[Rfam]
The family of this 120-nucleotide RNA is "drum RNA".

RNA sequence: GUGCCUUGAUCUGCCUUGACUGGGUCGGUUAACAGCUGGGCAGGGAGUACGACGGUGGGUUUAUGCGUCACCACAAGCCGACUAAAUUCCGGUUCACCGGAUUGAAAGAAAACGCUUAGA
Dot-bracket structure: ((((......((((((.(.(((..[[[[....))).)))))))...))))..............(((..........]]]]...(((((.........))))).........))).....
From the family's description: Firmicutes, Bacteroidetes (1 example), Proteobacteria (2 examples), Spirochaetes (2 examples).